[Rfam]
RNA sequence: UGAAAUUCAUCUUUCUUACCGUAGACAGUAGGUGUGCGACGGCACUUAAUUUCCUACCGAGGUGAAAGCCACUGGCCUUCGUCCGUCUACGAAGGCUUUUUCUUUUUCCUA
Numbered sequence: 001u002g003a004a005a006u007u008c009a010u011c012u013u014u015c016u017u018a019c020c021g022u023a024g025a026c027a028g029u030a031g032g033u034g035u036g037c038g039a040c041g042g043c044a045c046u047u048a049a050u051u052u053c054c055u056a057c058c059g060a061g062g063u064g065a066a067a068g069c070c071a072c073u074g075g076c077c078u079u080c081g082u083c084c085g086u087c088u089a090c091g092a093a094g095g096c097u098u099u100u101u102c103u104u105u106u107u108c109c110u111a
Stems, first nucleotide, its partner, number of pairs: 028057005034045003075096008